Annotation
This 74-nucleotide sequence from Hyalella azteca belongs to the Rfam family "mir-87 microRNA precursor family". It scores 51 bits against the family's covariance model. The base pairs follow the family's consensus structure, which was predicted with RNAalifold. Lineage of the source: Eukaryota > Opisthokonta > Bilateria > Malacostraca > Hyalella. A reference for the family is Sempere et al. (2003), "Temporal regulation of microRNA expression in Drosophila melanogaster mediated by hormonal signals and broad-Complex gene activity", Dev Biol. Rfam links the family to the GO terms RISC complex and miRNA-mediated post-transcriptional gene silencing.
[Rfam]
RNA sequence: UAGCUGGACGCCUGACUCUUGCUUUUAACCUUGUUUACUAUGAUAGGUGAGCAAAGUUUCAGGUGUGUGGCUGU
Number, nucleotide and partner (000 for none) at each position: 001u000002a072003g071004c070005u069006g068007g000008a000009c065010g064011c063012c062013u061014g060015a059016c000017u000018c056019u055020u054021g000022c000023u000024u051025u050026u049027a048028a000029c047030c046031u045032u000033g000034u000035u000036u000037a000038c000039u000040a000041u000042g000043a000044u000045a031046g030047g029048u027049g026050a025051g024052c000053a000054a020055a019056g018057u000058u000059u015060c014061a013062g012063g011064u010065g009066u000067g000068u006069g005070g004071c003072u002073g000074u000